[Rfam]
RNA: Plastid-psbA-1 3UTR RNA
Organism: Gossypium australe
RNA sequence: UUUAUAUAUAUUUUAAAAAAUAUAAAAAAGGGUGAAGAAAAGAAAGACCACUAAAUCUAAAUAAAGGAGCAAUAACCACUUUCUUGUUCUAGCAAGAGUGUUGGUAUUGCUCCUUU
Numbered sequence: 001u002u003u004a005u006a007u008a009u010a011u012u013u014u015a016a017a018a019a020a021u022a023u024a025a026a027a028a029a030g031g032g033u034g035a036a037g038a039a040a041a042g043a044a045a046g047a048c049c050a051c052u053a054a055a056u057c058u059a060a061a062u063a064a065a066g067g068a069g070c071a072a073u074a075a076c077c078a079c080u081u082u083c084u085u086g087u088u089c090u091a092g093c094a095a096g097a098g099u100g101u102u103g104g105u106a107u108u109g110c111u112c113c114u115u116u
Base pairs, nucleotide, nucleotide: 008023009022010021011020012019063116064115065114066113067112068111069110070109071108072107073106074105078101079100081098082097083096084095085094
Dot-bracket structure: .......(((((......))))).......................................((((((((((((...((.(((((........))))).))...))))))))))))